[Rfam]
RNA: DUF3800-IX RNA
RNA sequence: GCCCGCCGUACCGAACUGUGGCCUUUAUGGUCUGCGUUCCUCAGCGGUUGCUGAGGAUAGGUUGGCGGGUUUCU
Numbered sequence: 001g002c003c004c005g006c007c008g009u010a011c012c013g014a015a016c017u018g019u020g021g022c023c024u025u026u027a028u029g030g031u032c033u034g035c036g037u038u039c040c041u042c043a044g045c046g047g048u049u050g051c052u053g054a055g056g057a058u059a060g061g062u063u064g065g066c067g068g069g070u071u072u073c074u
Stems, first nucleotide, its partner, number of pairs: 001070008010062003017036003020032004038057007